Notes:
Rfam assigns this 130-nucleotide RNA sequence from Streptomyces sp. SAJ15 to the family "Streptomyces RNA 5676". The base pairs follow the family's consensus structure. A reference for the family is Vockenhuber et al. (2011), "Deep sequencing-based identification of small non-coding RNAs in Streptomyces coelicolor", RNA Biol. Identified by deep sequencing of transcriptome at the end of exponential growth phase. Appears longer on northern blot than sequencing transcript.

[Rfam]
RNA sequence: AGAUGAGAGAAACACCCCGCUCGCAGGGGACUGCGAGCGACGCCGAGCCGGUGCUUCCCCAGCUCCGACCCGGCCGUGCCCUCGCGCACACCACUGGAGCCCUCGGCUCUGGAUCUCCUCACCGAUCGGA
Number, nucleotide and partner (000 for none) at each position: 001a000002g000003a000004u121005g120006a119007g118008a000009g117010a116011a000012a000013c000014a000015c000016c000017c000018c039019g038020c037021u036022c035023g034024c033025a032026g031027g000028g000029g000030a000031c026032u025033g024034c023035g022036a021037g020038c019039g018040a000041c000042g074043c073044c072045g071046a000047g069048c000049c067050g066051g065052u000053g063054c062055u000056u000057c000058c000059c000060c000061a000062g054063c053064u000065c051066c050067g049068a000069c047070c000071c045072g044073g043074c042075c000076g089077u088078g087079c086080c000081c000082u000083c000084g000085c000086g079087c078088a077089c076090a000091c000092c000093a000094c112095u111096g110097g109098a108099g107100c106101c105102c000103u000104c000105g101106g100107c099108u098109c097110u096111g095112g094113a000114u000115c000116u010117c009118c007119u006120c005121a004122c129123c128124g000125a000126u000127c000128g123129g122130a000